[Rfam]
RNA sequence: CGGGAAAACCCUCGUUAAGGAACUCUGCAAAUUGCAUCCGUAACUUCGGGAAAAGGAUGGCCGGAACUGGUGAAGACCCAUGCGGUUGGAGCCGGGGCCGGCGACAGAAGAGAAGCCCAAGCGACUGUUUACCACAAACACAGGUGCCUGCAAAAGAGAAAUCUGACGUAUAGGUGCUGACGCCUGCCCGGUGCUGGAAGGUUAAGGGGAGAGGUCAGGAGCAAUCCGAAGCCUUGAGCUGAAGCCCCAGUAAACGGCGGCCGUAACUAUAACGGUCCUAAGGUAGCGAAAUUCCUUGUCGGGUAAGUUCCGACCCGCACGAAAGGCGUAACGAUUUGGGCACUGUCUCGACGAGGGGCCCG
Numbered sequence: 001c002g003g004g005a006a007a008a009c010c011c012u013c014g015u016u017a018a019g020g021a022a023c024u025c026u027g028c029a030a031a032u033u034g035c036a037u038c039c040g041u042a043a044c045u046u047c048g049g050g051a052a053a054a055g056g057a058u059g060g061c062c063g064g065a066a067c068u069g070g071u072g073a074a075g076a077c078c079c080a081u082g083c084g085g086u087u088g089g090a091g092c093c094g095g096g097g098c099c100g101g102c103g104a105c106a107g108a109a110g111a112g113a114a115g116c117c118c119a120a121g122c123g124a125c126u127g128u129u130u131a132c133c134a135c136a137a138a139c140a141c142a143g144g145u146g147c148c149u150g151c152a153a154a155a156g157a158g159a160a161a162u163c164u165g166a167c168g169u170a171u172a173g174g175u176g177c178u179g180a181c182g183c184c185u186g187c188c189c190g191g192u193g194c195u196g197g198a199a200g201g202u203u204a205a206g207g208g209g210a211g212a213g214g215u216c217a218g219g220a221g222c223a224a225u226c227c228g229a230a231g232c233c234u235u236g237a238g239c240u241g242a243a244g245c246c247c248c249a250g251u252a253a254a255c256g257g258c259g260g261c262c263g264u265a266a267c268u269a270u271a272a273c274g275g276u277c278c279u280a281a282g283g284u285a286g287c288g289a290a291a292u293u294c295c296u297u298g299u300c301g302g303g304u305a306a307g308u309u310c311c312g313a314c315c316c317g318c319a320c321g322a323a324a325g326g327c328g329u330a331a332c333g334a335u336u337u338g339g340g341c342a343c344u345g346u347c348u349c350g351a352c353g354a355g356g357g358g359c360c361c362g
Base pairs, nucleotide, nucleotide: 001362002361003360004359009357010356011355012354013353014352015351016350018348019347020346035059036058037057038056039055044049060102061101062100063099064098081096083094084093085092086091115341116340117339118338119337120336121335122333123332126140127139128138143178144177145176146175147174148173149172150171151168155164156163157162181328182327183326184325186258187257188256191255192254193251194250195249196248197247200246201245202244206240207239211235212234213233214232215231218227219226259277260276261275262274263273264272278282288315298314299313300312301311302310303309
RNA: Bacterial large subunit ribosomal RNA, nucleotides 1668 to 2029